[Rfam]
Small nucleolar RNA Z39: a 61-nucleotide RNA from Bombycilla garrulus.
Taxonomically the source falls in Bombycilla (Eukaryota, Euteleostomi, Tetrapoda, Coelurosauria).
The literature on the family includes a 2003 paper in Nucleic Acids Res by Chen et al., "The high diversity of snoRNAs in plants: identification and comparative study of 120 snoRNA genes from Oryza sativa".
Its family is annotated with nucleolus and RNA processing in the Gene Ontology.
RNA sequence: GCACAUGUGAUGUGACAGAGCAGGGUGAGAAACUGUGAUGCUGUAAGGGCUUGCUGAUGUG
Numbered sequence: 001g002c003a004c005a006u007g008u009g010a011u012g013u014g015a016c017a018g019a020g021c022a023g024g025g026u027g028a029g030a031a032a033c034u035g036u037g038a039u040g041c042u043g044u045a046a047g048g049g050c051u052u053g054c055u056g057a058u059g060u061g
Stems, first nucleotide, its partner, number of pairs: 002061004014051001016049001021043003025039002